[Rfam]
RNA: mir-9193 microRNA precursor family
Organism: Myotis davidii
RNA sequence: UAUGGAGGGGUGGGGUCCCUCAGCCCGGAUUGUGAGAGGGUGCAGGCCAGGCCGAGGGACUCCAUUGGUGCAGG
Numbered sequence: 001u002a003u004g005g006a007g008g009g010g011u012g013g014g015g016u017c018c019c020u021c022a023g024c025c026c027g028g029a030u031u032g033u034g035a036g037a038g039g040g041u042g043c044a045g046g047c048c049a050g051g052c053c054g055a056g057g058g059a060c061u062c063c064a065u066u067g068g069u070g071c072a073g074g
Base pairs, nucleotide, nucleotide: 003072004071006069009066010065012063013062014061015060016059017058018057019056020055021054023052024051025050027048028047030045031044032043033042034041